[Rfam]
RNA sequence: GGACUAAUAUUGGAUGAAUCCUACCCGGUGAGGCCUCGAUUAUCCCACACCGGACGAGAUUGCAUCCGACAGCAG
Numbered sequence: 001g002g003a004c005u006a007a008u009a010u011u012g013g014a015u016g017a018a019u020c021c022u023a024c025c026c027g028g029u030g031a032g033g034c035c036u037c038g039a040u041u042a043u044c045c046c047a048c049a050c051c052g053g054a055c056g057a058g059a060u061u062g063c064a065u066c067c068g069a070c071a072g073c074a075g
Stems, first nucleotide, its partner, number of pairs: 004072002010069007017061004022056001025053005032046002
Rfam assigns this 75-nucleotide sequence from Diachasma alloeum to the family "mir-3478 microRNA precursor family". The organism belongs to Diachasma, within Eukaryota. Gene Ontology terms of the family: RISC complex and miRNA-mediated post-transcriptional gene silencing.